[Rfam]
RNA sequence: UAAACACACUACUGUAAGACACUUUGGAUAAAAGUGUCUGCUAAAUGACUGGAA
Numbered sequence: 001u002a003a004a005c006a007c008a009c010u011a012c013u014g015u016a017a018g019a020c021a022c023u024u025u026g027g028a029u030a031a032a033a034g035u036g037u038c039u040g041c042u043a044a045a046u047g048a049c050u051g052g053a054a
Stems, first nucleotide, its partner, number of pairs: 013043001014041003020036006
RNA: UnaL2 LINE 3' element
Organism: Muraenolepis orangiensis